The record is a 201-nucleotide RNA sequence from Sapajus apella, which matches "Small nucleolar RNA SNORA73 family" in Rfam. Clan: snR30-U17 clan. Rfam's curators write: U17 (SNORA73A and SNORA73B) also known as E1 belongs to the H/ACA class of small nucleolar RNAs (snoRNAs). Vertebrate U17 is intron-encoded and ranges in length from 200-230 nucleotides, longer than most snoRNAs. Gene Ontology terms of the family: nucleolus and RNA processing. Rfam classes the family as an H/ACA-box small nucleolar RNA. NCBI's taxonomy places the organism under Eukaryota, Opisthokonta, Amniota, Platyrrhini, Sapajus. On this family, see Cervelli et al., J Mol Evol 2002: "Comparative Structure Analysis of Vertebrate U17 Small Nucleolar RNA (snoRNA)".

RNA sequence: GCAACAUGGAUACCCUGGGAAGUCACUCUCCCCAGGCUCUGUCUAAAUGGCAUAGGGGAGCAUAGGGCUUCAUCCCAGGUUGUGCAGUCCUUUGCCACAAGUUAGAGAUGAAGCUGGGCCUGGUGUCUGUGCCUGCAUUUUUCUACAGCUUCUGAGUCCUGUGGACAAUAACAGAGGGGACAAAUCAUGCAGGAAAUGUGU
Numbered sequence: 001g002c003a004a005c006a007u008g009g010a011u012a013c014c015c016u017g018g019g020a021a022g023u024c025a026c027u028c029u030c031c032c033c034a035g036g037c038u039c040u041g042u043c044u045a046a047a048u049g050g051c052a053u054a055g056g057g058g059a060g061c062a063u064a065g066g067g068c069u070u071c072a073u074c075c076c077a078g079g080u081u082g083u084g085c086a087g088u089c090c091u092u093u094g095c096c097a098c099a100a101g102u103u104a105g106a107g108a109u110g111a112a113g114c115u116g117g118g119c120c121u122g123g124u125g126u127c128u129g130u131g132c133c134u135g136c137a138u139u140u141u142u143c144u145a146c147a148g149c150u151u152c153u154g155a156g157u158c159c160u161g162u163g164g165a166c167a168a169u170a171a172c173a174g175a176g177g178g179g180a181c182a183a184a185u186c187a188u189g190c191a192g193g194a195a196a197u198g199u200g201u
Stems, first nucleotide, its partner, number of pairs: 003103003007099001008044005014036003018029003048097003056091004060085001062083003132193007149179005156166004